[Rfam]
RNA sequence: GAGACACCCUUCUGGGGCAAGACUUGCUUCAGUGGGGCUUUAGUGCUCCCUGAGUCUUCCCCCUGAGUGUGUCUCC
Numbered sequence: 001g002a003g004a005c006a007c008c009c010u011u012c013u014g015g016g017g018c019a020a021g022a023c024u025u026g027c028u029u030c031a032g033u034g035g036g037g038c039u040u041u042a043g044u045g046c047u048c049c050c051u052g053a054g055u056c057u058u059c060c061c062c063c064u065g066a067g068u069g070u071g072u073c074u075c076c
Base pairs, nucleotide, nucleotide: 001075002074003073004072005071006070007069009067010066011065014062015061016060017059019057021056022055023054029053030052031051032050034048035047036046037044038043